Overview
mir-205 microRNA precursor family: a 72-nucleotide RNA from Triplophysa rosa. The family's consensus secondary structure was predicted with RNAalifold. Rfam links the family to the GO terms RISC complex and miRNA-mediated post-transcriptional gene silencing. A reference for the family is Lim et al. (2003), "Vertebrate microRNA genes", Science.
[Rfam]
RNA sequence: GUGUUGUGUCCUUCAUUCCACCGGAGUCUGUUUGAACAGAUCAGACUUCAGAGGAGUGAAGAGAAUAACACA
Numbered sequence: 001g002u003g004u005u006g007u008g009u010c011c012u013u014c015a016u017u018c019c020a021c022c023g024g025a026g027u028c029u030g031u032u033u034g035a036a037c038a039g040a041u042c043a044g045a046c047u048u049c050a051g052a053g054g055a056g057u058g059a060a061g062a063g064a065a066u067a068a069c070a071c072a
Stems, first nucleotide, its partner, number of pairs: 011061006019053001021051001023049004028044003